[Rfam]
RNA sequence: AUUCACUUGUCGGAGUGCCAUAUGGCUGAGACCGUUAGUUCGGGAUCCGUUGAACCUGAUCAGGCUAGAACCUGCGAAGGGAACAAGAGAAGACACAUC
Numbered sequence: 001a002u003u004c005a006c007u008u009g010u011c012g013g014a015g016u017g018c019c020a021u022a023u024g025g026c027u028g029a030g031a032c033c034g035u036u037a038g039u040u041c042g043g044g045a046u047c048c049g050u051u052g053a054a055c056c057u058g059a060u061c062a063g064g065c066u067a068g069a070a071c072c073u074g075c076g077a078a079g080g081g082a083a084c085a086a087g088a089g090a091a092g093a094c095a096c097a098u099c
Stems, first nucleotide, its partner, number of pairs: 006087005011049004016043001017026003033042002055080003061074004
RNA: TPP riboswitch aptamer (THI element)